[Rfam]
RNA: Small nucleolar RNA SNORD127
RNA sequence: UGGCAACUGUGAUGAAAUACUUGGUCUGUAUGUAAUGCAUUACUAAAUGAAGACAACAGUCCCUCUAAACUGACGUUGCCA
Numbered sequence: 001u002g003g004c005a006a007c008u009g010u011g012a013u014g015a016a017a018u019a020c021u022u023g024g025u026c027u028g029u030a031u032g033u034a035a036u037g038c039a040u041u042a043c044u045a046a047a048u049g050a051a052g053a054c055a056a057c058a059g060u061c062c063c064u065c066u067a068a069a070c071u072g073a074c075g076u077u078g079c080c081a
Base pairs, nucleotide, nucleotide: 001081002080003079004078005077006076007075